[Rfam]
RNA sequence: UGAUACCAGAGUACCAGAUCUGAGUACACAUGAGCUUGCUCAAAUGUGGACGAAAGAUCUUGGGACUCGCCCCGUCAUGAGCAAUACAGCAGGAUGCUAAUCCUGCGUUUUGCGAAUGUCGGGUAGGAUUGCGAGAGUGCUCUGCACGUAGCAAUCCGAUGGUAUCA
Numbered sequence: 001u002g003a004u005a006c007c008a009g010a011g012u013a014c015c016a017g018a019u020c021u022g023a024g025u026a027c028a029c030a031u032g033a034g035c036u037u038g039c040u041c042a043a044a045u046g047u048g049g050a051c052g053a054a055a056g057a058u059c060u061u062g063g064g065a066c067u068c069g070c071c072c073c074g075u076c077a078u079g080a081g082c083a084a085u086a087c088a089g090c091a092g093g094a095u096g097c098u099a100a101u102c103c104u105g106c107g108u109u110u111u112g113c114g115a116a117u118g119u120c121g122g123g124u125a126g127g128a129u130u131g132c133g134a135g136a137g138u139g140c141u142c143u144g145c146a147c148g149u150a151g152c153a154a155u156c157c158g159a160u161g162g163u164a165u166c167a
Stems, first nucleotide, its partner, number of pairs: 001167007010067003016060006024051002027048004031042004071123004076118003081113004089106007126157007137147004
The family of this 167-nucleotide sequence from Dorea sp. CAG:105 is "Clostridiales-1 RNA". The family's RNA type in Rfam is small RNA. Rfam 15.1 lists 1,172 matches to the family in 137 species. The match comes from Rfam's covariance-model search (125 bits).